The record is a 268-nucleotide RNA sequence from Nannospalax galili, which matches "Mason-Pfizer monkey virus packaging signal" in Rfam. The literature on the family includes a 2004 paper in Virus Res by Mustafa et al., "Mutational analysis of the predicted secondary RNA structure of the Mason-Pfizer monkey virus packaging signal".
RNA sequence: UGGCGCCCAACGUGGCUUGGAUACUGGGGACCACAUGAGGGACACGACGAAAAAAGAAGGGGUGCACACCCGCUCAAAUAGUUCAGAGACGUCGCGGUAGCCUGCUGUGACCGAGCCAACAGGUAAGUUGGUUGUCAAUCAUGGGGCAAGAAUUAAGUCAGCAUCAAAAGUAUGUGAUGCAGUUAAGAGAAGCGCUACAGGCAAGAGGAGUAAAGGUUACAACUGAGGAUUUAUUCCAUUUCUUUGAUUUUAUAAGACAUCUGCCAUU
Numbered sequence: 001u002g003g004c005g006c007c008c009a010a011c012g013u014g015g016c017u018u019g020g021a022u023a024c025u026g027g028g029g030a031c032c033a034c035a036u037g038a039g040g041g042a043c044a045c046g047a048c049g050a051a052a053a054a055a056g057a058a059g060g061g062g063u064g065c066a067c068a069c070c071c072g073c074u075c076a077a078a079u080a081g082u083u084c085a086g087a088g089a090c091g092u093c094g095c096g097g098u099a100g101c102c103u104g105c106u107g108u109g110a111c112c113g114a115g116c117c118a119a120c121a122g123g124u125a126a127g128u129u130g131g132u133u134g135u136c137a138a139u140c141a142u143g144g145g146g147c148a149a150g151a152a153u154u155a156a157g158u159c160a161g162c163a164u165c166a167a168a169a170g171u172a173u174g175u176g177a178u179g180c181a182g183u184u185a186a187g188a189g190a191a192g193c194g195c196u197a198c199a200g201g202c203a204a205g206a207g208g209a210g211u212a213a214a215g216g217u218u219a220c221a222a223c224u225g226a227g228g229a230u231u232u233a234u235u236c237c238a239u240u241u242c243u244u245u246g247a248u249u250u251u252a253u254a255a256g257a258c259a260u261c262u263g264c265c266a267u268u
Stems, first nucleotide, its partner, number of pairs: 006029003012024003034046001036044001078124002081120002090113002093109005129149001131147002135144003154197002157193002205245006214232005255268001256265001258263001
Pairs were carried over by alignment from the consensus structure, which was predicted with PFOLD. A search with the family's covariance model found it, with a score of 129 bits.